Rfam assigns this 532-nucleotide part of an RNA from Rhodotorula toruloides to the family "Eukaryotic small subunit ribosomal RNA". Its Rfam clan is "SSU clan".
[Rfam]
RNA sequence: CCGUUAAAAAGCUCGUAGUCGAACUUCGGGCUCUGCCAGCCGGUCCGCCUUCUUGGUGUGUACUUGUUUGGUGGAGCCUUACCUCCUGGUGAACAGCGAUGUCCUUCACUGGGUGUCGUUGCAAACCAGGACGUUUACUUUGAAAAAAUUAGAGUGUUCAAAGCAGGCCUUUGCCCGAAUACAUUAGCAUGGAAUAAUAGAAUAGGACGCGCGUUCCCAUUUUGUUGGUUUCUGAGAUCGCCGUAAUGAUUAAUAGGGAUAGUUGGGGGCAUUUGUAUUCCGUCGUCAGAGGUGAAAUUCUUGGAUUGCCGGAAGACAAACUACUGCGAAAGCAUUUGCCAAGGAUGUUUUCAUUGAUCAAGAACGAAGGAAGGGGGAUCGAAAACGAUUAGAUACCGUUGUAGUCUCUUCUGUAAACUAUGCCAAUUGGGGAUCGGCACAGGAUUUUUAAUGACUGUGUCGGCACCCGAAGAGAAAUCUUUAAAUGAGGUUCGGGGGGGAGUAUGGUCGCAAGGCUGAAACUUAAAGGAAU
Numbered sequence: 001c002c003g004u005u006a007a008a009a010a011g012c013u014c015g016u017a018g019u020c021g022a023a024c025u026u027c028g029g030g031c032u033c034u035g036c037c038a039g040c041c042g043g044u045c046c047g048c049c050u051u052c053u054u055g056g057u058g059u060g061u062a063c064u065u066g067u068u069u070g071g072u073g074g075a076g077c078c079u080u081a082c083c084u085c086c087u088g089g090u091g092a093a094c095a096g097c098g099a100u101g102u103c104c105u106u107c108a109c110u111g112g113g114u115g116u117c118g119u120u121g122c123a124a125a126c127c128a129g130g131a132c133g134u135u136u137a138c139u140u141u142g143a144a145a146a147a148a149u150u151a152g153a154g155u156g157u158u159c160a161a162a163g164c165a166g167g168c169c170u171u172u173g174c175c176c177g178a179a180u181a182c183a184u185u186a187g188c189a190u191g192g193a194a195u196a197a198u199a200g201a202a203u204a205g206g207a208c209g210c211g212c213g214u215u216c217c218c219a220u221u222u223u224g225u226u227g228g229u230u231u232c233u234g235a236g237a238u239c240g241c242c243g244u245a246a247u248g249a250u251u252a253a254u255a256g257g258g259a260u261a262g263u264u265g266g267g268g269g270c271a272u273u274u275g276u277a278u279u280c281c282g283u284c285g286u287c288a289g290a291g292g293u294g295a296a297a298u299u300c301u302u303g304g305a306u307u308g309c310c311g312g313a314a315g316a317c318a319a320a321c322u323a324c325u326g327c328g329a330a331a332g333c334a335u336u337u338g339c340c341a342a343g344g345a346u347g348u349u350u351u352c353a354u355u356g357a358u359c360a361a362g363a364a365c366g367a368a369g370g371a372a373g374g375g376g377g378a379u380c381g382a383a384a385a386c387g388a389u390u391a392g393a394u395a396c397c398g399u400u401g402u403a404g405u406c407u408c409u410u411c412u413g414u415a416a417a418c419u420a421u422g423c424c425a426a427u428u429g430g431g432g433a434u435c436g437g438c439a440c441a442g443g444a445u446u447u448u449u450a451a452u453g454a455c456u457g458u459g460u461c462g463g464c465a466c467c468c469g470a471a472g473a474g475a476a477a478u479c480u481u482u483a484a485a486u487g488a489g490g491u492u493c494g495g496g497g498g499g500g501a502g503u504a505u506g507g508u509c510g511c512a513a514g515g516c517u518g519a520a521a522c523u524u525a526a527a528g529g530a531a532u
Stems, first nucleotide, its partner, number of pairs: 001495003009492001011365001013363002018358003256352004260347002263344002268340004274318002278314005284308002289300003326333002370411006380404001384400004422491003426486002429468003434463008443455001445453001472479002497524003506517004